RNA sequence: GCCGCUUGGCCGCCGAGUCCGCCCCCGGCACGGGGGUGGAGCCGGGGAACCACCGAGCCGUUCGUCCCGCCGCUCGCGGGCGGCCGGCUCCGGGGUGAAUCGGCGCCGCGCCUCGCACCCGGAGUCGAGGCCGUGCGCCGUAGGUCGACUUCCACGACCGAACCCGUCAGCUAACCCGGUAGGCGUAUGGAAGGAGUGAG
Numbered sequence: 001g002c003c004g005c006u007u008g009g010c011c012g013c014c015g016a017g018u019c020c021g022c023c024c025c026c027g028g029c030a031c032g033g034g035g036g037u038g039g040a041g042c043c044g045g046g047g048a049a050c051c052a053c054c055g056a057g058c059c060g061u062u063c064g065u066c067c068c069g070c071c072g073c074u075c076g077c078g079g080g081c082g083g084c085c086g087g088c089u090c091c092g093g094g095g096u097g098a099a100u101c102g103g104c105g106c107c108g109c110g111c112c113u114c115g116c117a118c119c120c121g122g123a124g125u126c127g128a129g130g131c132c133g134u135g136c137g138c139c140g141u142a143g144g145u146c147g148a149c150u151u152c153c154a155c156g157a158c159c160g161a162a163c164c165c166g167u168c169a170g171c172u173a174a175c176c177c178g179g180u181a182g183g184c185g186u187a188u189g190g191a192a193g194g195a196g197u198g199a200g
Base pairs, nucleotide, nucleotide: 011185012184013183014182018040019039020038021037022036023035024034025033026032027031041180042179043178044177045176046175051092093165094164095163101140102139103138104137105136106135143159144158145157146156

Shown here is a 200-nucleotide sequence from Actinomadura viridilutea, a member of the family "c-di-AMP riboswitch aptamer (ydaO/yuaA leader)". Rfam's curators write: This family represents a conserved RNA structure found upstream of the ydaO and yuaA genes in Bacillus subtilis and related genes in other bacteria. A search with the family's covariance model found it, with a score of 52 bits. NCBI's taxonomy places the organism under Bacteria, Actinomycetes, Streptosporangiales, Thermomonosporaceae, Actinomadura.